Description: Rfam assigns this 80-nucleotide RNA from Polypterus senegalus to the family "mir-147 microRNA precursor family". The family's consensus secondary structure was predicted with RNAalifold. A reference for the family is Kawaji et al. (2008), "Hidden layers of human small RNAs", BMC Genomics.
[Rfam]
RNA sequence: UGCCAAUCUAACGGAAUCAUUUCUGCACAAACUCGACUCAUUGAAGACCAGUGUGCGGAAAUGCUUCUGCUACAUUGGAA
Numbered sequence: 001u002g003c004c005a006a007u008c009u010a011a012c013g014g015a016a017u018c019a020u021u022u023c024u025g026c027a028c029a030a031a032c033u034c035g036a037c038u039c040a041u042u043g044a045a046g047a048c049c050a051g052u053g054u055g056c057g058g059a060a061a062u063g064c065u066u067c068u069g070c071u072a073c074a075u076u077g078g079a080a
Base pairs, nucleotide, nucleotide: 001080004077005076006075007074009072010071012069013068014067015066016065018063019062020061021060022059023058024057025056026055027054028053029052032051033050